[Rfam]
RNA sequence: AUACCCUACGGAGUGCUCAGGUCCGCCGCAUCUCCUGGGUCCGUGGGGUCGGCCGGUUCGGAAGUGGCUAGAGUGGCCUCCUCGAUCGCCACUUCCGACCGGCCACCAU
Numbered sequence: 001a002u003a004c005c006c007u008a009c010g011g012a013g014u015g016c017u018c019a020g021g022u023c024c025g026c027c028g029c030a031u032c033u034c035c036u037g038g039g040u041c042c043g044u045g046g047g048g049u050c051g052g053c054c055g056g057u058u059c060g061g062a063a064g065u066g067g068c069u070a071g072a073g074u075g076g077c078c079u080c081c082u083c084g085a086u087c088g089c090c091a092c093u094u095c096c097g098a099c100c101g102g103c104c105a106c107c108a109u
Base pairs, nucleotide, nucleotide: 003049004048005047006046007045008044009043010042016039017038018037019036020035021034051104052103053102054101055100056099057098058097060096061095
This 109-nucleotide sequence from Lichenibacterium minor belongs to the Rfam family "EcpR1".
A search with the family's covariance model found it, with a score of 103 bits.
For this family Rfam cites "A stress-induced small RNA modulates alpha-rhizobial cell cycle progression" (Robledo et al., PLoS Genet, 2015).
About the family: Perviously named SmelC291, SmrC10, or Sra33. According to its overproduction phenotype it was renamed Elongated Cell Phenotype RNA1. Induced by stress,EcpR1 negatively regulates cell cycle master regulatory genes dnaA and gcrA at post-transcriptional level by base pairing between its strongly conserved GC-rich loop and the target mRNAs.